RNA sequence: CAGAAGAAUCUGUAAAGCUCAGGAGGGAUAGCGCCACGACACUCAUGAUUUUCACAUCAUAGUGUAUUUGGCGCUAUCUAUCCUGAGUUUCACGGGUUUUUCUU
Numbered sequence: 001c002a003g004a005a006g007a008a009u010c011u012g013u014a015a016a017g018c019u020c021a022g023g024a025g026g027g028a029u030a031g032c033g034c035c036a037c038g039a040c041a042c043u044c045a046u047g048a049u050u051u052u053c054a055c056a057u058c059a060u061a062g063u064g065u066a067u068u069u070g071g072c073g074c075u076a077u078c079u080a081u082c083c084u085g086a087g088u089u090u091c092a093c094g095g096g097u098u099u100u101u102c103u104u
Stems, first nucleotide, its partner, number of pairs: 010095001016089009026079010
MIR390 microRNA precursor family: a 104-nucleotide RNA sequence from Glycine max. Rfam links the family to the GO terms miRNA-mediated post-transcriptional gene silencing and RISC complex. NCBI's taxonomy places the organism under Eukaryota, Streptophyta, Pentapetalae, Phaseoleae, Glycine subgen. Soja. A reference for the family is Xie et al. (2005), "Expression of Arabidopsis MIRNA genes", Plant Physiol.